[Rfam]
Plastid-ycf3 group II-D1 intron: a 44-nucleotide RNA from Lactuca sativa. Rfam links the family to the GO term Group II intron splicing. On this family, see Richter et al., Plant Commun 2023: "Retrograde signaling in plants: A critical review focusing on the GUN pathway and beyond". The family has 385 seed sequences and 1,488 matches in Rfam 15.1. From the family's description: Plastid rpl16 is a non-coding RNA (ncRNA) recognised in plastids. It was recognised in and intronic region of a ribosome rpl16 gene.
RNA sequence: AUUCCUUCUGUCGUGUAUCCUCGAUUAAUGUAGCCUCGGAUGUU
Numbered sequence: 001a002u003u004c005c006u007u008c009u010g011u012c013g014u015g016u017a018u019c020c021u022c023g024a025u026u027a028a029u030g031u032a033g034c035c036u037c038g039g040a041u042g043u044u
Base pairs, nucleotide, nucleotide: 010025011024012023013022032044033043034042